The record is a 162-nucleotide part of an RNA from Hymenoscyphus fraxineus, which matches "Ascomycota telomerase RNA" in Rfam. NCBI's taxonomy places the organism under Eukaryota, Fungi, leotiomyceta, Helotiales, Hymenoscyphus. The family is grouped with related families in Rfam's "Telomerase clan". Gene Ontology terms of the family: telomere maintenance via telomerase, telomerase catalytic core complex and telomerase activity.

RNA sequence: CACAUGGUCUUUCGUCCUUGCGAUGAUUUGACACCCUUUCCUCCCCUCCCUGUCCCAAGACUUGGGUUGGGCGAGAUGAUCAGCGGCUUUUGUUGAUGUCUUUUGUCCGCCUCUUUUGCCUUGCAUUUUUGAUGCAAAGGAAACAUAAAACUAAUCUCAGAG
Numbered sequence: 001c002a003c004a005u006g007g008u009c010u011u012u013c014g015u016c017c018u019u020g021c022g023a024u025g026a027u028u029u030g031a032c033a034c035c036c037u038u039u040c041c042u043c044c045c046c047u048c049c050c051u052g053u054c055c056c057a058a059g060a061c062u063u064g065g066g067u068u069g070g071g072c073g074a075g076a077u078g079a080u081c082a083g084c085g086g087c088u089u090u091u092g093u094u095g096a097u098g099u100c101u102u103u104u105g106u107c108c109g110c111c112u113c114u115u116u117u118g119c120c121u122u123g124c125a126u127u128u129u130u131g132a133u134g135c136a137a138a139g140g141a142a143a144c145a146u147a148a149a150a151c152u153a154a155u156c157u158c159a160g161a162g
Base pairs, nucleotide, nucleotide: 006035007034008033017022039079040078041075042074043073044071045070046069048066049065050064054059095156096155097154098151099150101149102148103147104145105144106143119140120139121137122136123135124134